[Rfam]
RNA sequence: AUGCCUUAAACUGAUGAGUAAGGAAAAUAACGAUGCGGGGUGACGCCCGUAUCCUCGUUCACAAUACGAGAGGAAUUUUUGACGGGGCACAGGCCUGCCUGCUGAGGUGACUUGCUUACUUCGCGAGAUGCCUCGUGGGACUGGGGUCUGCCCU
Numbered sequence: 001a002u003g004c005c006u007u008a009a010a011c012u013g014a015u016g017a018g019u020a021a022g023g024a025a026a027a028u029a030a031c032g033a034u035g036c037g038g039g040g041u042g043a044c045g046c047c048c049g050u051a052u053c054c055u056c057g058u059u060c061a062c063a064a065u066a067c068g069a070g071a072g073g074a075a076u077u078u079u080u081g082a083c084g085g086g087g088c089a090c091a092g093g094c095c096u097g098c099c100u101g102c103u104g105a106g107g108u109g110a111c112u113u114g115c116u117u118a119c120u121u122c123g124c125g126a127g128a129u130g131c132c133u134c135g136u137g138g139g140a141c142u143g144g145g146g147u148c149u150g151c152c153c154u
Stems, first nucleotide, its partner, number of pairs: 004023005032053008054070005084154005091149005098144002102138002105133005111127005